[Rfam]
The record is a 396-nucleotide RNA sequence from Aspergillus carbonarius, which matches "RNase MRP" in Rfam. It scores 116 bits against the family's covariance model. Rfam's curators write: RNase MRP is an enzymatically active ribonucleoprotein with two distinct roles in eukaryotes. In mitochondria it plays a direct role in the initiation of mitochondrial DNA replication. In the nucleus it is involved in precursor rRNA processing, where it cleaves the internal transcribed spacer 1 between 18S and 5.8S rRNAs. Clan: RNaseP clan. The family's RNA type in Rfam is ribozyme. Lineage of the source: Eukaryota > Opisthokonta > Ascomycota > Aspergillus subgen. Circumdati > Aspergillus carbonarius.
RNA sequence: UCCUCGCUCAAAGAAUCGCAUUCAAAGCUCACACACAGAGAAUACCUCGUAUUCUCUACCCCCCUUUUGCUUUGGGAGAAAGUCCCCGGACACCCUGGCUGUCUAAACGUCCCCUCGUGGACCCAGUCAGGCAAUGCGGAAACGCGCCGCCAUAGAAGCAAUUCGAUAGCGGCUGAUUGCCCUAUUCCCUCCCAGUGCUGGCGCUGUAUCCGACACUAGCUGGCUGAAAGGUCAGGUGGUGGAACCAAUGGUGGUACGGCACGGUGCUGGAGAGGGGGUUUUAUCUGGGUUGCCUUUCGUCGUGUUUGGAUAGUCAUGCGAUUGCCCUCGUUUCUGGUCUCUUCGUUUGAGGGGAUUGGAGAGGGUAACUCAAUGGGGCUCAUUCUUGAGGCGAGG
Numbered sequence: 001u002c003c004u005c006g007c008u009c010a011a012a013g014a015a016u017c018g019c020a021u022u023c024a025a026a027g028c029u030c031a032c033a034c035a036c037a038g039a040g041a042a043u044a045c046c047u048c049g050u051a052u053u054c055u056c057u058a059c060c061c062c063c064c065u066u067u068u069g070c071u072u073u074g075g076g077a078g079a080a081a082g083u084c085c086c087c088g089g090a091c092a093c094c095c096u097g098g099c100u101g102u103c104u105a106a107a108c109g110u111c112c113c114c115u116c117g118u119g120g121a122c123c124c125a126g127u128c129a130g131g132c133a134a135u136g137c138g139g140a141a142a143c144g145c146g147c148c149g150c151c152a153u154a155g156a157a158g159c160a161a162u163u164c165g166a167u168a169g170c171g172g173c174u175g176a177u178u179g180c181c182c183u184a185u186u187c188c189c190u191c192c193c194a195g196u197g198c199u200g201g202c203g204c205u206g207u208a209u210c211c212g213a214c215a216c217u218a219g220c221u222g223g224c225u226g227a228a229a230g231g232u233c234a235g236g237u238g239g240u241g242g243a244a245c246c247a248a249u250g251g252u253g254g255u256a257c258g259g260c261a262c263g264g265u266g267c268u269g270g271a272g273a274g275g276g277g278g279u280u281u282u283a284u285c286u287g288g289g290u291u292g293c294c295u296u297u298c299g300u301c302g303u304g305u306u307u308g309g310a311u312a313g314u315c316a317u318g319c320g321a322u323u324g325c326c327c328u329c330g331u332u333u334c335u336g337g338u339c340u341c342u343u344c345g346u347u348u349g350a351g352g353g354g355a356u357u358g359g360a361g362a363g364g365g366u367a368a369c370u371c372a373a374u375g376g377g378g379c380u381c382a383u384u385c386u387u388g389a390g391g392c393g394a395g396g
Base pairs, nucleotide, nucleotide: 002396003395004394005393006392007391008389009388010387011386014323015322016321017320018319019318022076023074024073025072026071027070028069038056039055040054041053042052043051044050081380082379084378085377086376087375097151098150099149152167153166155164156163157162169294175286178283179282184279185278186277188275189274190273191272258268259267260266261265325365326364327363328362329361